[Rfam]
Record summary:
The record is a 73-nucleotide RNA sequence from Myotis davidii, which matches "mir-9193 microRNA precursor family" in Rfam. The organism belongs to Myotis, within Eukaryota. Gene Ontology terms of the family: miRNA-mediated post-transcriptional gene silencing and RISC complex.

RNA sequence: CUUGGGAGUGGGGAUCCCUCAGCCUGGGUUGCAGGAGGGCGCAGGCCAGGCCGAGGGACCCCACUGGUGCACG
Numbered sequence: 001c002u003u004g005g006g007a008g009u010g011g012g013g014a015u016c017c018c019u020c021a022g023c024c025u026g027g028g029u030u031g032c033a034g035g036a037g038g039g040c041g042c043a044g045g046c047c048a049g050g051c052c053g054a055g056g057g058a059c060c061c062c063a064c065u066g067g068u069g070c071a072c073g
Base pairs, nucleotide, nucleotide: 003071004070006068008065011062012061013060015058016057017056018055019054020053022051023050024049026047027046029044030043031042032041